MIR2593 microRNA precursor family: a 115-nucleotide RNA from Trifolium subterraneum. Rfam 15.1 lists 1,262 matches to the family in 6 species. Gene Ontology terms of the family: miRNA-mediated post-transcriptional gene silencing and RISC complex.
[Rfam]
RNA sequence: UUAUAAGAAAAAGUUUGCUUUUUAGAUUCAUGGAAUGUUUGAUGCAUCUGGACAAUAAUAUUGUCUAGAUACAUCAAACAUUCUAUGAAUCUAAAAGGCAAUUUUUUAUUUAUAA
Number, nucleotide and partner (000 for none) at each position: 001u000002u114003a113004u112005a111006a110007g109008a000009a107010a106011a105012a104013g103014u000015u101016u100017g099018c098019u097020u096021u095022u094023u093024a092025g091026a000027u089028u088029c087030a086031u085032g084033g083034a082035a081036u080037g079038u078039u077040u076041g075042a074043u073044g072045c000046a000047u000048c000049u067050g066051g065052a064053c000054a000055a000056u000057a000058a000059u000060a000061u000062u000063g000064u052065c051066u050067a049068g000069a000070u000071a000072c044073a043074u042075c041076a040077a039078a038079c037080a036081u035082u034083c033084u032085a031086u030087g029088a028089a027090u000091c025092u024093a023094a022095a021096a020097g019098g018099c017100a016101a015102u000103u013104u012105u011106u010107u009108a000109u007110u006111u005112a004113u003114a002115a000

The base pairs follow the family's consensus structure, which was predicted with RNAalifold. Lineage of the source: Eukaryota > Viridiplantae > rosids > Fabaceae > Trifolium. It scores 97 bits against the family's covariance model.